[Rfam]
RNA sequence: GUAUGAAAUGAUGGCAUACCAUCUUUCGGGACUGACUCUGAUGAAGAUACUUUUUUUCACUUUACUGAUCAUAC
Numbered sequence: 001g002u003a004u005g006a007a008a009u010g011a012u013g014g015c016a017u018a019c020c021a022u023c024u025u026u027c028g029g030g031a032c033u034g035a036c037u038c039u040g041a042u043g044a045a046g047a048u049a050c051u052u053u054u055u056u057u058c059a060c061u062u063u064a065c066u067g068a069u070c071a072u073a074c
Stems, first nucleotide, its partner, number of pairs: 001074006